[Rfam]
RNA sequence: UUGACAGAAGAGAGUGAGCACCCAUGGUGUUUCCUUAGCAUCAAGGGGCAUGCCAGGGAGCUAUGCGUGCUCACUGCUCUAUCUGUCAG
Numbered sequence: 001u002u003g004a005c006a007g008a009a010g011a012g013a014g015u016g017a018g019c020a021c022c023c024a025u026g027g028u029g030u031u032u033c034c035u036u037a038g039c040a041u042c043a044a045g046g047g048g049c050a051u052g053c054c055a056g057g058g059a060g061c062u063a064u065g066c067g068u069g070c071u072c073a074c075u076g077c078u079c080u081a082u083c084u085g086u087c088a089g
Stems, first nucleotide, its partner, number of pairs: 001089008010079003013075009023065003
This 89-nucleotide sequence from Aegilops tauschii belongs to the Rfam family "mir-156 microRNA precursor family". On this family, see Reinhart et al., Genes Dev 2002: "MicroRNAs in plants". The organism belongs to Aegilops tauschii, within Eukaryota. Rfam describes the family as follows. This family represents the plant microRNA (miRNA) precursor mir-156. Gene Ontology terms of the family: RISC complex and miRNA-mediated post-transcriptional gene silencing.